[Rfam]
RNA sequence: AUGAUAGCAUGGGGAGAGAGCGUGUAUGUUGACGACGCCGAAGGAGCAAGCCGUAAAUAGCGAAUCUCUCAGGCAAAAAGACUCUUGCUAGACG
Numbered sequence: 001a002u003g004a005u006a007g008c009a010u011g012g013g014g015a016g017a018g019a020g021c022g023u024g025u026a027u028g029u030u031g032a033c034g035a036c037g038c039c040g041a042a043g044g045a046g047c048a049a050g051c052c053g054u055a056a057a058u059a060g061c062g063a064a065u066c067u068c069u070c071a072g073g074c075a076a077a078a079a080g081a082c083u084c085u086u087g088c089u090a091g092a093c094g
Stems, first nucleotide, its partner, number of pairs: 006089004011084003021034003037074003040070002044068003050061002

Rfam assigns this 94-nucleotide RNA from Pullulanibacillus camelliae to the family "Glycine riboswitch aptamer". Taxonomically the source falls in Pullulanibacillus (Bacteria, Bacillota, Caryophanales, Sporolactobacillaceae). This family represents the bacterial glycine riboswitch. Glycine riboswitches usually consist of two metabolite-binding aptamers domains with similar structures in tandem. The aptamers cooperatively bind glycine to regulate the expression of downstream genes. The match comes from Rfam's covariance-model search (65 bits). Pairs were carried over by alignment from the consensus structure.